The record is a 76-nucleotide RNA sequence, which matches "RAGATH-26 RNA" in Rfam.
[Rfam]
RNA sequence: CCGCAUGCUACGACUGAAAGUGUUGGUUGCGAACGCAUCGGUUCGCAUAAGGUUAAAAUUUGCGGUUAUAUGCGAU
Numbered sequence: 001c002c003g004c005a006u007g008c009u010a011c012g013a014c015u016g017a018a019a020g021u022g023u024u025g026g027u028u029g030c031g032a033a034c035g036c037a038u039c040g041g042u043u044c045g046c047a048u049a050a051g052g053u054u055a056a057a058a059u060u061u062g063c064g065g066u067u068a069u070a071u072g073c074g075a076u
Stems, first nucleotide, its partner, number of pairs: 028047007
Rfam classes the family as a small RNA.